The record is a 96-nucleotide sequence from Mus musculus, which matches "mir-341 microRNA precursor family" in Rfam. Gene Ontology terms of the family: RISC complex and miRNA-mediated post-transcriptional gene silencing. The family has 2 seed sequences and 9 matches in Rfam 15.1. The base pairs follow the family's consensus structure, which was predicted with RNAalifold.

RNA sequence: AAAAUGAUGAUGUCAGUUGGCCGGUCGGCCGAUCGCUCGGUCUGUCAGUCAGUCGGUCGGUCGAUCGGUCGGUCGGUCAGUCGGCUUCCUGUCUUC
Numbered sequence: 001a002a003a004a005u006g007a008u009g010a011u012g013u014c015a016g017u018u019g020g021c022c023g024g025u026c027g028g029c030c031g032a033u034c035g036c037u038c039g040g041u042c043u044g045u046c047a048g049u050c051a052g053u054c055g056g057u058c059g060g061u062c063g064a065u066c067g068g069u070c071g072g073u074c075g076g077u078c079a080g081u082c083g084g085c086u087u088c089c090u091g092u093c094u095u096c
Stems, first nucleotide, its partner, number of pairs: 006093003009088002012085003016081020037060004042056003046052001